[Rfam]
RNA sequence: GGCUCAUCCAGAGGGGCAGAGGGAACGGCCCAGUGAAGCCCCGGCAACCGAGCGGAUGAGUGUGCUGGCCGCCCUCCCGGGGCGGCUUCGUCGUGGCCGACCGCUACCCGGCUCACGGCAGUUAGCACACCCGCGGCAGGUGCCAAUUCCGACCCGAGGUGCCAUGUCGGCCCCGGGAAAGAUGAGGA
Numbered sequence: 001g002g003c004u005c006a007u008c009c010a011g012a013g014g015g016g017c018a019g020a021g022g023g024a025a026c027g028g029c030c031c032a033g034u035g036a037a038g039c040c041c042c043g044g045c046a047a048c049c050g051a052g053c054g055g056a057u058g059a060g061u062g063u064g065c066u067g068g069c070c071g072c073c074c075u076c077c078c079g080g081g082g083c084g085g086c087u088u089c090g091u092c093g094u095g096g097c098c099g100a101c102c103g104c105u106a107c108c109c110g111g112c113u114c115a116c117g118g119c120a121g122u123u124a125g126c127a128c129a130c131c132c133g134c135g136g137c138a139g140g141u142g143c144c145a146a147u148u149c150c151g152a153c154c155c156g157a158g159g160u161g162c163c164a165u166g167u168c169g170g171c172c173c174c175g176g177g178a179a180a181g182a183u184g185a186g187g188a
Stems, first nucleotide, its partner, number of pairs: 003186006013042005021031003026151003043144004048140002148180001153177004158172003
Notes
The record is a 188-nucleotide RNA sequence from Frankia nepalensis, which matches "SAM riboswitch aptamer (S box leader)" in Rfam. It scores 62 bits against the family's covariance model. The SAM riboswitch is found upstream of a number of genes which code for proteins involved in methionine or cysteine biosynthesis in Gram-positive bacteria.